[Rfam]
RNA sequence: CUUCAAGGAAUGGAGCAAACGGCGGAGCAGGGAUACUUUGGCCGGUUUCAUCUACUCCGCCUCUAAGUCCAAAUCAACAGGAUGUCGGUUUCUUUGAGGCUUUAGCACGAAUUUCUCGUCCUCCUUGUUAAAUUUUUGUUAAAUUCACAAUAUUAUAUACCAUUAGCCCGGGCGCUGUUCUUCCCAUUUCUGAAUUUAUAAAAGUAAAUUGGCACCAACUGCCUUUUUCUCAAUUCCCAUAUCAAACAAAAAAACGCACCUGCCCUUUGGCCUGUGCAUUUUUAU
Numbered sequence: 001c002u003u004c005a006a007g008g009a010a011u012g013g014a015g016c017a018a019a020c021g022g023c024g025g026a027g028c029a030g031g032g033a034u035a036c037u038u039u040g041g042c043c044g045g046u047u048u049c050a051u052c053u054a055c056u057c058c059g060c061c062u063c064u065a066a067g068u069c070c071a072a073a074u075c076a077a078c079a080g081g082a083u084g085u086c087g088g089u090u091u092c093u094u095u096g097a098g099g100c101u102u103u104a105g106c107a108c109g110a111a112u113u114u115c116u117c118g119u120c121c122u123c124c125u126u127g128u129u130a131a132a133u134u135u136u137u138g139u140u141a142a143a144u145u146c147a148c149a150a151u152a153u154u155a156u157a158u159a160c161c162a163u164u165a166g167c168c169c170g171g172g173c174g175c176u177g178u179u180c181u182u183c184c185c186a187u188u189u190c191u192g193a194a195u196u197u198a199u200a201a202a203a204g205u206a207a208a209u210u211g212g213c214a215c216c217a218a219c220u221g222c223c224u225u226u227u228u229c230u231c232a233a234u235u236c237c238c239a240u241a242u243c244a245a246a247c248a249a250a251a252a253a254a255c256g257c258a259c260c261u262g263c264c265c266u267u268u269g270g271c272c273u274g275u276g277c278a279u280u281u282u283u284a285u
Base pairs, nucleotide, nucleotide: 007238008237011232012231013230015167016166021061022060023059024058025057026056027055029053030052031051032049033048035046036045037044076140077139078138079137080136081135082134087101088100089099090098091097092096104122105121107119108118109117110116170216171215172213173212174209176207180204181203182202186199187198248283249282250281251280252279256277257276258275259274262271263270264269
This 285-nucleotide RNA sequence from Bacillus spizizenii belongs to the Rfam family "SurA sRNA". It is one of the family's seed sequences. Lineage of the source: Bacteria > Bacillati > Caryophanales > Bacillus > Bacillus spizizenii. For this family Rfam cites "Genes for small, noncoding RNAs under sporulation control in Bacillus subtilis" (Silvaggi et al., J Bacteriol, 2006). Rfam classes the family as a small RNA. Pairs were carried over by alignment from the consensus structure, which was predicted with mfold.